[Rfam]
RNA sequence: GUCUACCUUUAAUAAUUCAGGGUCCAGCAAUUAAAAAACCCCGACAUUUCGGGGUUUUUUAUUAUCUGAAAUUUCUUAUACAUCUUGCUGAUGUAUAAGGGAUUUUAGAAAUUGCUUGGAAUUAUGAUUGGGCUCUGAGCCCUUUUUUU
Numbered sequence: 001g002u003c004u005a006c007c008u009u010u011a012a013u014a015a016u017u018c019a020g021g022g023u024c025c026a027g028c029a030a031u032u033a034a035a036a037a038a039c040c041c042c043g044a045c046a047u048u049u050c051g052g053g054g055u056u057u058u059u060u061a062u063u064a065u066c067u068g069a070a071a072u073u074u075c076u077u078a079u080a081c082a083u084c085u086u087g088c089u090g091a092u093g094u095a096u097a098a099g100g101g102a103u104u105u106u107a108g109a110a111a112u113u114g115c116u117u118g119g120a121a122u123u124a125u126g127a128u129u130g131g132g133c134u135c136u137g138a139g140c141c142c143u144u145u146u147u148u149u
Stems, first nucleotide, its partner, number of pairs: 035058009130142004